Rfam assigns this 122-nucleotide RNA sequence from Rhizobium etli to the family "Alphaproteobacterial ar14". From the family's description: Smr14C2 was renamed NfeR1 (Nodule Formation Efficiency RNA) highly expressed in salt stress and during the symbiotic interaction on legume roots. A reference for the family is del Val et al. (2012), "A survey of sRNA families in alpha-proteobacteria", RNA Biol. The source organism's lineage runs through Bacteria, Pseudomonadati, Hyphomicrobiales, Rhizobium and Rhizobium etli. The base pairs follow the family's consensus structure.

RNA sequence: AUCUUCGUAAGCAGCGCACUCCUCCUCCCAGCGCUCUUACAUCGGAUUGACAACACUCCUCCUCCCAGUUGUCAGUCAGGAUCAAGAGCCUGGCGCACCUCCUCCCGCGCCAGGCUCUUUUC
Numbered sequence: 001a002u003c004u005u006c007g008u009a010a011g012c013a014g015c016g017c018a019c020u021c022c023u024c025c026u027c028c029c030a031g032c033g034c035u036c037u038u039a040c041a042u043c044g045g046a047u048u049g050a051c052a053a054c055a056c057u058c059c060u061c062c063u064c065c066c067a068g069u070u071g072u073c074a075g076u077c078a079g080g081a082u083c084a085a086g087a088g089c090c091u092g093g094c095g096c097a098c099c100u101c102c103u104c105c106c107g108c109g110c111c112a113g114g115c116u117c118u119u120u121u122c
Base pairs, nucleotide, nucleotide: 007040008039009038011036013035014034015033016032017031045077046076047075048074049073050072051071052070053069054068086117087116088115089114090113091112092111093110094109095108096107
Dot-bracket structure: ......(((.(.(((((.............)))))).)))....((((((((((.............))))))))))........(((((((((((..........))))))))))).....